T-box leader: a 225-nucleotide RNA sequence from Listeria innocua.
For this family Rfam cites "Interaction between the acceptor end of tRNA and the T box stimulates antitermination in the Bacillus subtilis tyrS gene: a new role for the discriminator base" (Grundy et al., J Bacteriol, 1994).
Lineage of the source: Bacteria > Bacillota > Bacilli > Listeriaceae > Listeria.
Rfam's curators put it in the seed alignment.
By type it is a cis-regulatory leader.
Uncharged tRNA acts as the effector for transcription antitermination of genes in the T-box leader family. T-boxes are found upstream of many aminoacyl-tRNA synthetase genes and some amino acid biosynthetic genes usually in Gram-positive bacteria. The anticodon of a specific tRNA base pairs to a specifier sequence within the T-box motif, and the NCCA acceptor tail of the tRNA base pairs to a conserved bulge in the T-box antiterminator hairpin.
Pairs were carried over by alignment from the consensus structure, which is taken from published work.

RNA sequence: ACGAAAACAUGAAACAAGAAUAGUACUUUUCAUCGAUUUUCAAAGAGAGUUAGCGUUUGGUGCGAGCUAAUAAAUAGAUGAAAUAGGAAUGGGCCUUGUGCGUGAUACCUUGAACUGAAGUAGGGGUGAACGGGAGCUCCCGUUAUAGAGCAGCUGCAAAAAAGCAGCACUGAGAUAGGGGGAUUCCCCUAAAAUGAGGUGGCACCGCGAUAACUCGUCCUCUGA
Number, nucleotide and partner (000 for none) at each position: 001a000002c000003g000004a000005a000006a000007a103008c102009a000010u000011g000012a000013a000014a000015c098016a097017a096018g095019a000020a000021u000022a000023g000024u000025a000026c086027u085028u083029u082030u081031c080032a000033u000034c000035g000036a000037u000038u074039u073040u072041c000042a000043a000044a000045g000046a000047g000048a000049g071050u070051u069052a068053g067054c066055g000056u000057u000058u000059g000060g000061u000062g000063c000064g000065a000066g054067c053068u052069a051070a050071u049072a040073a039074a038075u000076a000077g000078a000079u000080g031081a030082a029083a028084u000085a027086g026087g000088a000089a000090u000091g000092g000093g000094c000095c018096u017097u016098g015099u000100g000101c000102g008103u007104g000105a000106u128107a127108c126109c125110u124111u123112g000113a000114a000115c000116u000117g000118a000119a000120g000121u000122a000123g111124g110125g109126g108127u107128g106129a000130a000131c142132g141133g140134g000135a000136g000137c000138u000139c000140c133141c132142g131143u000144u000145a000146u000147a000148g000149a000150g000151c000152a000153g000154c000155u000156g000157c000158a000159a000160a000161a000162a000163a000164g000165c000166a000167g000168c000169a000170c000171u000172g000173a000174g000175a000176u000177a190178g189179g188180g187181g186182g000183a000184u000185u000186c181187c180188c179189c178190u177191a000192a000193a000194a000195u000196g222197a221198g220199g219200u000201g000202g000203c000204a000205c000206c000207g218208c217209g216210a215211u000212a000213a000214c000215u210216c209217g208218u207219c199220c198221u197222c196223u000224g000225a000